[Rfam]
A member of the RNA family "Eukaryotic small subunit ribosomal RNA" from Babesia sp. Xinjiang, 583 nucleotides of a longer RNA.
The base pairs follow the family's consensus structure, which is taken from published work.
A reference for the family is Yusupov et al. (2001), "Crystal structure of the ribosome at 5.5 A resolution", Science.
Gene Ontology terms of the family: ribosome and structural constituent of ribosome.

RNA sequence: AACCUGGUUGAUCCUGCCAGUAGUCAUAUGCUUGUCUUAAAGAUUAAGCCAUGCAUGUCUAAGUACAAGCUUUUUACGGUGAAACUGCGAAUGGCUCAUUACAACAGUUAUAGUUUCUUUGGUAUUCGUUUUUUCCAUGGAUAACCGUGCUAAUUGUAGGGCUAAUACAAGUUCGAUGCCUUUUUGGCGGCGUUUAUUAGUUUUUUAAACCUCUUUUUUUCGGUGAUUCAUAAUAAACUUGCGAAUCGCAUGCUUUUGCGGCGAUGGCCCAUUCAAGUUUCUGACCCAUCAGCUUGACGGUAGGGUAUUGGCCUACCGAGGCAGCAACGGGUAACGGGGAAUUAGGGUUCGAUUCCGGAGAGGGAGCCUGAGAAACGGCUACCACAUCUAAGGAAGGCAGCAGGCGCGCAAAUUACCCAAUCCUGACACAGGGAGGUAGUGACAAGAAAUAACAAUACAGGGCUAUUGUCUUGUAAUUGGAAUGAUGGUGACUUAAACCCUCACCAGAGUACCAAUUGGAGGGCAAGUCUGGUGCCAGCAGCCGCGGUAAUUCCAGCUCCAAUAGCGUAUAUUAAACUUGUUG
Dot-bracket structure: ...(((((.......))))).(((.(((((((..((((..((.....(((.(((..((...(((....((........))...)))))......(((.......(((..((..((....(((.............(.((.....((.(((.....))).))......)).).......((.....))......((((((........(.(...........).)......)))))).........((((.(((....)))))))....)))...))))..))).(((....(((...(((((((.......))))))).)))......)))...((((((((....))))...))))))).((.(((..........))).)).(.((....)).)...)))))).).....(.(((...(((((...))))).)))).)...)))).....(((((((((((....)))))))).)))......((..((.........))..)).........((((((.......((((.....((....)).......)))))))))).))))))))))..........